[Rfam]
RNA: c-di-AMP riboswitch aptamer (ydaO/yuaA leader)
RNA sequence: GGCCGAGCACCGCCGAAUUGCCCGACGGCGCCUUCGUGGCGUCCGACGGCGAACCGGGGACCCACCGCAGUCCUGGGGUGAGUUUCCCUGUAGGGCCGGCUCGCCGGUGCGCAGGGGAUAGGGCCAGUCUUCCCAGCCCGAACCCGUCAGCUAACUCGGUAGGCGGUUGCAGAGGAAGAA
Numbered sequence: 001g002g003c004c005g006a007g008c009a010c011c012g013c014c015g016a017a018u019u020g021c022c023c024g025a026c027g028g029c030g031c032c033u034u035c036g037u038g039g040c041g042u043c044c045g046a047c048g049g050c051g052a053a054c055c056g057g058g059g060a061c062c063c064a065c066c067g068c069a070g071u072c073c074u075g076g077g078g079u080g081a082g083u084u085u086c087c088c089u090g091u092a093g094g095g096c097c098g099g100c101u102c103g104c105c106g107g108u109g110c111g112c113a114g115g116g117g118a119u120a121g122g123g124c125c126a127g128u129c130u131u132c133c134c135a136g137c138c139c140g141a142a143c144c145c146g147u148c149a150g151c152u153a154a155c156u157c158g159g160u161a162g163g164c165g166g167u168u169g170c171a172g173a174g175g176a177a178g179a180a
Base pairs, nucleotide, nucleotide: 011165012164013163014162018052019051020050021049022048053160054159055158056157057156058155063075064074076145077144078143084118085117086116087115088114089113090112091111121139122138123137124136